[Rfam]
RNA sequence: CGAGCCGGCCGGACGGCCGCGUCGGGGUUUCGCACCCCGCCGAGGAAGGUCCGGGCUCCACAGGGCAGGGUGGUCGGUAACACCGACCCGGGGCGACCCGCGGGACAGUGCCACAGAAAACAGACCGCCCCCGCACGGGGGUAAGGGUGAAACGGUGGUGUAAGAGACCACCAGCGCCCACGGCGACGUGGGCGGCUAGGUAAACCCCACCUGGAGCAAGGUCAAGAAGGAAUGCCCCCGGGCAUUCCGCGCGCGACAUUCGAGGGCUGCCCGCCCGACGCCGCGCGGGUAGACCGCUUGAGACCACGAGCAAUCGUGGCCCUAGAUGGAUGGCCGUCAGGUGUCAACCUACAAAACCCGGCCUACAGGCCGACUCGUCCG
Numbered sequence: 001c002g003a004g005c006c007g008g009c010c011g012g013a014c015g016g017c018c019g020c021g022u023c024g025g026g027g028u029u030u031c032g033c034a035c036c037c038c039g040c041c042g043a044g045g046a047a048g049g050u051c052c053g054g055g056c057u058c059c060a061c062a063g064g065g066c067a068g069g070g071u072g073g074u075c076g077g078u079a080a081c082a083c084c085g086a087c088c089c090g091g092g093g094c095g096a097c098c099c100g101c102g103g104g105a106c107a108g109u110g111c112c113a114c115a116g117a118a119a120a121c122a123g124a125c126c127g128c129c130c131c132c133g134c135a136c137g138g139g140g141g142u143a144a145g146g147g148u149g150a151a152a153c154g155g156u157g158g159u160g161u162a163a164g165a166g167a168c169c170a171c172c173a174g175c176g177c178c179c180a181c182g183g184c185g186a187c188g189u190g191g192g193c194g195g196c197u198a199g200g201u202a203a204a205c206c207c208c209a210c211c212u213g214g215a216g217c218a219a220g221g222u223c224a225a226g227a228a229g230g231a232a233u234g235c236c237c238c239c240g241g242g243c244a245u246u247c248c249g250c251g252c253g254c255g256a257c258a259u260u261c262g263a264g265g266g267c268u269g270c271c272c273g274c275c276c277g278a279c280g281c282c283g284c285g286c287g288g289g290u291a292g293a294c295c296g297c298u299u300g301a302g303a304c305c306a307c308g309a310g311c312a313a314u315c316g317u318g319g320c321c322c323u324a325g326a327u328g329g330a331u332g333g334c335c336g337u338c339a340g341g342u343g344u345c346a347a348c349c350u351a352c353a354a355a356a357c358c359c360g361g362c363c364u365a366c367a368g369g370c371c372g373a374c375u376c377g378u379c380c381g
Base pairs, nucleotide, nucleotide: 001377002376003375004374006372007371008370009369010368011366012338013337014336015335016334017333018332020042021041023039024038025037026036027035028034047364048363049362051361052360053359054358055357056216057215058214059213063272064271065270066269068212069211070210071209072208073087074086075085076084077083088102089100090099091098092097103207104206108205109204110201111200112199125146126145127142128141129140130139131138132137154172155171156170157169158168159167174196175194176193177192178191179190180189181188182187220295221294222293223292230286233283234282264276265275266274267273302321304319305318306317307316308315309314

About this RNA: The record is a 381-nucleotide sequence from Acrocarpospora phusangensis, which matches "Bacterial RNase P class A" in Rfam. Rfam classes the family as a ribozyme. On this family, see Beauregard et al., RNA Biol 2013: "Identification and characterization of small RNAs in Yersinia pestis". NCBI's taxonomy places the organism under Bacteria, Actinomycetota, Streptosporangiales, Streptosporangiaceae, Acrocarpospora. The match comes from Rfam's covariance-model search (285 bits).